[Rfam]
RNA sequence: GGACGUGUAGCUCAGUUGGUUAGAGCGUUCGCUUCACACGCGAGAGGUCAGGGGUUCGAGUCCCUUCACGUCCA
Dot-bracket structure: (((((((..((((.........)))).(((((.......))))).....(((((.......)))))))))))).

A member of the RNA family "tRNA" from Intrasporangium chromatireducens, 74 nucleotides long. The family's RNA type in Rfam is transfer RNA. Pairs were carried over by alignment from the consensus structure, which is taken from published work. The source organism's lineage runs through Bacteria, Actinomycetota, Actinomycetes, Micrococcales and Intrasporangium chromatireducens.